[Rfam]
RNA sequence: CUUGGUUCUUUAUUUAUUUUUGUCCUGAAGCACUAUAUAGAAUAGAAACAGGACUACAUGCCAAUUUAUUAGCACAUUAUUUAAGUUUAAUUUAAGUCAUAAAAUACAGAAAUUUCUUACGAGAAAUUUCGGUGAUAGAAUUAAAAAUUCUUAAUUGAUAAAUUGACUAUAUAAU
Numbered sequence: 001c002u003u004g005g006u007u008c009u010u011u012a013u014u015u016a017u018u019u020u021u022g023u024c025c026u027g028a029a030g031c032a033c034u035a036u037a038u039a040g041a042a043u044a045g046a047a048a049c050a051g052g053a054c055u056a057c058a059u060g061c062c063a064a065u066u067u068a069u070u071a072g073c074a075c076a077u078u079a080u081u082u083a084a085g086u087u088u089a090a091u092u093u094a095a096g097u098c099a100u101a102a103a104a105u106a107c108a109g110a111a112a113u114u115u116c117u118u119a120c121g122a123g124a125a126a127u128u129u130c131g132g133u134g135a136u137a138g139a140a141u142u143a144a145a146a147a148u149u150c151u152u153a154a155u156u157g158a159u160a161a162a163u164u165g166a167c168u169a170u171a172u173a174a175u
Stems, first nucleotide, its partner, number of pairs: 001052004006047004013041005060167001062165008074142001077139002081135002109130005116123002
This 175-nucleotide RNA belongs to the Rfam family "RT-16 RNA". The family's RNA type in Rfam is small RNA.